[Rfam]
RNA sequence: GAAGCAAGCCAGACCGCCGCCGGGGCGAGGCCCGCAAGGGCGCCCGGGAGGAAGGUCCGGACUGCACAGAGCAGCGCAGCAGCUAACGGCUGUCCACCGCGAGGUGAGGAUCAGAGCAACAGAGACGAGUCGCGCCGGGCCUGCCCGGGGCGGGUGAAACGGGCAAUCUCUGCGCGCAGCAACACCGAAUAGGCACGUGUCGAUCCGGCUCGGGGAGCGUGCGGGUAGGUGGCAUCGAGCCCCGCAGCGAUGCGGGGCCCAGAGGAAUGGCGGUCACGGCCGGCCGGCCGCAAGGCCGGACGGCUGCACAGAAUCCGGCCUAUCGGCUCGCUUCACAC
Numbered sequence: 001g002a003a004g005c006a007a008g009c010c011a012g013a014c015c016g017c018c019g020c021c022g023g024g025g026c027g028a029g030g031c032c033c034g035c036a037a038g039g040g041c042g043c044c045c046g047g048g049a050g051g052a053a054g055g056u057c058c059g060g061a062c063u064g065c066a067c068a069g070a071g072c073a074g075c076g077c078a079g080c081a082g083c084u085a086a087c088g089g090c091u092g093u094c095c096a097c098c099g100c101g102a103g104g105u106g107a108g109g110a111u112c113a114g115a116g117c118a119a120c121a122g123a124g125a126c127g128a129g130u131c132g133c134g135c136c137g138g139g140c141c142u143g144c145c146c147g148g149g150g151c152g153g154g155u156g157a158a159a160c161g162g163g164c165a166a167u168c169u170c171u172g173c174g175c176g177c178a179g180c181a182a183c184a185c186c187g188a189a190u191a192g193g194c195a196c197g198u199g200u201c202g203a204u205c206c207g208g209c210u211c212g213g214g215g216a217g218c219g220u221g222c223g224g225g226u227a228g229g230u231g232g233c234a235u236c237g238a239g240c241c242c243c244g245c246a247g248c249g250a251u252g253c254g255g256g257g258c259c260c261a262g263a264g265g266a267a268u269g270g271c272g273g274u275c276a277c278g279g280c281c282g283g284c285c286g287g288c289c290g291c292a293a294g295g296c297c298g299g300a301c302g303g304c305u306g307c308a309c310a311g312a313a314u315c316c317g318g319c320c321u322a323u324c325g326g327c328u329c330g331c332u333u334c335a336c337a338c
Stems, first nucleotide, its partner, number of pairs: 001334005007328004011323001012275007020048002023045005053321003057318005062179004069211004074175005079093005094108001095106004109170002114168002116164002131153001132151002135148005183231004193222006204214003239258008
Shown here is a 338-nucleotide sequence from Pseudideonella sakaiensis, a member of the family "Bacterial RNase P class A". Lineage of the source: Bacteria > Pseudomonadati > Betaproteobacteria > Sphaerotilaceae > Pseudideonella.